[Rfam]
RNA: Ribosomal protein L10 leader
RNA sequence: GACAACUCAAGACUAAAACCGAAGACCGCAGGGGUCUGGCUGAGACAUAAUCUUCCUGCCGAGGUUUGCGAAGUCCAUCCGUUGCGAUUGGGCGAUCGCCCCGGCACCCUUGCUGGGGUUUUUCUUUCACUGA
Numbered sequence: 001g002a003c004a005a006c007u008c009a010a011g012a013c014u015a016a017a018a019c020c021g022a023a024g025a026c027c028g029c030a031g032g033g034g035u036c037u038g039g040c041u042g043a044g045a046c047a048u049a050a051u052c053u054u055c056c057u058g059c060c061g062a063g064g065u066u067u068g069c070g071a072a073g074u075c076c077a078u079c080c081g082u083u084g085c086g087a088u089u090g091g092g093c094g095a096u097c098g099c100c101c102c103g104g105c106a107c108c109c110u111u112g113c114u115g116g117g118g119u120u121u122u123u124c125u126u127u128c129a130c131u132g133a
Stems, first nucleotide, its partner, number of pairs: 028059006034046003099118008